Clostridiales-1 RNA: a 172-nucleotide RNA sequence from Roseburia zhanii. The organism belongs to Roseburia, within Bacteria.

[Rfam]
Nucleotides: 172
Base pairs, nucleotide, nucleotide: 001172002171003170004169005168006167010070011069012068013067017063018062019061020060021059022058023057024056025055026054029051032048033046034045035044036043037042075128076127077126078125079124080123081122084119085118086117087116091112092111093109094108095107096106097105131164133162134161135160136159137158142154143153144152145151
Number, partner (000 for none) and nucleotide at each position: 001172u002171g003170a004169u005168a006167c007000u008000a009000g010070g011069g012068u013067c014000a015000a016000a017063a018062g019061g020060u021059c022058g023057g024056a025055a026054a027000g028000a029051c030000g031000a032048u033046g034045c035044a036043a037042g038000c039000u040000u041000g042037c043036u044035u045034g046033c047000a048032a049000g050000a051029g052000g053000a054026u055025u056024u057023u058022u059021g060020a061019c062018c063017u064000u065000u066000u067013g068012a069011c070010c071000c072000g073000c074000c075128c076127a077126c078125a079124c080123a081122u082000g083000a084119g085118a086117a087116a088000g089000u090000a091112g092111u093109g094108a095107u096106u097105u098000c099000c100000c101000u102000u103000g104000g105097a106096a107095a108094u109093c110000a111092a112091c113000g114000g115000a116087u117086u118085u119084u120000g121000a122081a123080u124079g125078u126077g127076u128075g129000u130000a131164g132000a133162a134161u135160u136159g137158u138000g139000g140000a141000a142154g143153u144152u145151g146000c147000a148000c149000a150000g151145c152144a153143a154142c155000g156000g157000a158137g159136c160135a161134a162133u163000c164131c165000g166000u167006g168005u169004a170003u171002c172001a